The record is a 336-nucleotide RNA from Acetobacter sp. CAG:977, which matches "Alphaproteobacteria transfer-messenger RNA" in Rfam. NCBI's taxonomy places the organism under Bacteria, Pseudomonadati, Pseudomonadota, Alphaproteobacteria, Acetobacter.
RNA sequence: CCACUUGAUUCGGCGUCCGCAUUACUUAUAUAAUCCCUUCGCCGGUUUUGCCGGCUAUGAUGCUAAACGCCCUGCAGAAUAGGCGUUGCGGACCCGGGGGCGGUACCCGGCGCCUCCACCAUAUACGGGGGCGAAACAGGAUCGACGCGCGUAGUAAAGGCAGGAUCUGCAUCCGGCAUUGUACCACCGUUAUCGGGCUAAAUUUUUGAAUGCGAACGAUAAUCGCACUCAGGUUGCUCUCGCUGCCUAAUCGGCGGUCGGACGACCAAACUUAAUCCCCGUGCCUUGAGCGGUACGGGUGGGGCGGGGACUGCCUAGCAACAGAAGUGUCCCACU
Numbered sequence: 001c002c003a004c005u006u007g008a009u010u011c012g013g014c015g016u017c018c019g020c021a022u023u024a025c026u027u028a029u030a031u032a033a034u035c036c037c038u039u040c041g042c043c044g045g046u047u048u049u050g051c052c053g054g055c056u057a058u059g060a061u062g063c064u065a066a067a068c069g070c071c072c073u074g075c076a077g078a079a080u081a082g083g084c085g086u087u088g089c090g091g092a093c094c095c096g097g098g099g100g101c102g103g104u105a106c107c108c109g110g111c112g113c114c115u116c117c118a119c120c121a122u123a124u125a126c127g128g129g130g131g132c133g134a135a136a137c138a139g140g141a142u143c144g145a146c147g148c149g150c151g152u153a154g155u156a157a158a159g160g161c162a163g164g165a166u167c168u169g170c171a172u173c174c175g176g177c178a179u180u181g182u183a184c185c186a187c188c189g190u191u192a193u194c195g196g197g198c199u200a201a202a203u204u205u206u207u208g209a210a211u212g213c214g215a216a217c218g219a220u221a222a223u224c225g226c227a228c229u230c231a232g233g234u235u236g237c238u239c240u241c242g243c244u245g246c247c248u249a250a251u252c253g254g255c256g257g258u259c260g261g262a263c264g265a266c267c268a269a270a271c272u273u274a275a276u277c278c279c280c281g282u283g284c285c286u287u288g289a290g291c292g293g294u295a296c297g298g299g300u301g302g303g304g305c306g307g308g309g310a311c312u313g314c315c316u317a318g319c320a321a322c323a324g325a326a327g328u329g330u331c332c333c334a335c336u
Base pairs, nucleotide, nucleotide: 041055042054043053044052045051059173060172061171062170063169069166071164072163073162074161075160084151085150086149088148089147090146094110095109096108097107098106111133112132113131114130115129116128117127174189175188176187179200181198184196185195302316303315304314305313306333307332308331309330
Its family is annotated with RNA catabolic process in the Gene Ontology.